[Rfam]
RNA sequence: CACGUGCUCUGGGGUCGGUGAAAAUCCGAGCCGGCGGUAACAGUCCGCGACCCGCACCUCGGUGCGGUUGAUCUGGUGCAACUCCAGGACCGACGGUCAAAGUCCGGAUGGGAAGAGUCUCGUG
Numbered sequence: 001c002a003c004g005u006g007c008u009c010u011g012g013g014g015u016c017g018g019u020g021a022a023a024a025u026c027c028g029a030g031c032c033g034g035c036g037g038u039a040a041c042a043g044u045c046c047g048c049g050a051c052c053c054g055c056a057c058c059u060c061g062g063u064g065c066g067g068u069u070g071a072u073c074u075g076g077u078g079c080a081a082c083u084c085c086a087g088g089a090c091c092g093a094c095g096g097u098c099a100a101a102g103u104c105c106g107g108a109u110g111g112g113a114a115g116a117g118u119c120u121c122g123u124g
Stems, first nucleotide, its partner, number of pairs: 003122002006119001007117004016028003030103002032092002034048004043090002052067002072088005094106003
A member of the RNA family "FMN riboswitch aptamer (RFN element)" from Sanguibacter sp. Leaf3, 124 nucleotides long. The family's consensus secondary structure is taken from published work.